RNA sequence: GGUUUGCGUUGUUACAAAUCCAAUCACCUGAAUUUAUUAUGAAAAUCAAUUCCCCAUUGGUAACAAAUGGUUAUCCAUUAAGCGGAGGAGAUCUUAU
Number, nucleotide and partner (000 for none) at each position: 001g000002g000003u000004u000005u000006g000007c000008g000009u023010u022011g021012u000013u000014a000015c000016a000017a000018a000019u000020c000021c011022a010023a009024u000025c000026a000027c000028c000029u000030g000031a000032a000033u000034u000035u000036a000037u000038u000039a000040u000041g000042a000043a000044a000045a000046u000047c000048a000049a000050u000051u000052c087053c000054c085055c084056a078057u077058u000059g075060g074061u073062a072063a071064c070065a000066a000067a000068u000069g000070g064071u063072u062073a061074u060075c059076c000077a057078u056079u000080a000081a000082g000083c000084g055085g054086a000087g052088g000089a000090g000091a000092u000093c000094u000095u000096a000097u000
RNA: Plastid-rps12 3UTR RNA